[Rfam]
RNA sequence: ACCCGCCAAUCGGGAGAGACUGGCCGCUUUGAACUGCAUCGCAGCGAAAGGCAGGCCGGCGCCGAAGGAGCAACCGCCCCGGAAACUCUCAGGCAAAAGGACCGUGUGCGGGAC
Number, nucleotide and partner (000 for none) at each position: 001a000002c000003c000004c000005g000006c000007c108008a107009a000010u000011c104012g103013g102014g000015a000016g000017a000018g000019a000020c059021u058022g057023g056024c055025c054026g000027c000028u000029u000030u000031g000032a000033a000034c000035u000036g000037c000038a000039u000040c000041g000042c000043a000044g000045c000046g000047a000048a000049a000050g000051g000052c000053a000054g025055g024056c023057c022058g021059g020060c000061g094062c093063c092064g090065a089066a000067g000068g088069a087070g086071c000072a000073a000074c082075c081076g000077c000078c000079c000080c000081g075082g074083a000084a000085a000086c070087u069088c068089u065090c064091a000092g063093g062094c061095a000096a000097a000098a000099g000100g000101a000102c013103c012104g011105u000106g000107u008108g007109c000110g000111g000112g000113a000114c000
Glycine riboswitch aptamer: a 114-nucleotide RNA from Afipia carboxidovorans. The organism belongs to Afipia carboxidovorans, within Bacteria.